Shown here is a 131-nucleotide RNA sequence from Lottia gigantea, a member of the family "Vault RNA". This family of RNAs are found as part of the enigmatic vault ribonucleoprotein complex. The complex consists of a major vault protein (MVP), two minor vault proteins (VPARP and TEP1), and several small untranslated RNA molecules. It has been suggested that the vault complex is involved in drug resistance. Pairs were carried over by alignment from the consensus structure, which is taken from published work.
[Rfam]
RNA sequence: AGUCAGGCUCAGUCAAGUGGUUACUUCGUUUACUUACUGUAACCUUUCAUUAGCGUUGAAAUGUUUGACUUCUCCUCUUCCGGAAAUCGGAGGAGAGAGGUUAAUGACCGCUGACGCCAUCCUGACUUUUG
Numbered sequence: 001a002g003u004c005a006g007g008c009u010c011a012g013u014c015a016a017g018u019g020g021u022u023a024c025u026u027c028g029u030u031u032a033c034u035u036a037c038u039g040u041a042a043c044c045u046u047u048c049a050u051u052a053g054c055g056u057u058g059a060a061a062u063g064u065u066u067g068a069c070u071u072c073u074c075c076u077c078u079u080c081c082g083g084a085a086a087u088c089g090g091a092g093g094a095g096a097g098a099g100g101u102u103a104a105u106g107a108c109c110g111c112u113g114a115c116g117c118c119a120u121c122c123u124g125a126c127u128u129u130u131g
Stems, first nucleotide, its partner, number of pairs: 002126006012115004017111004026107004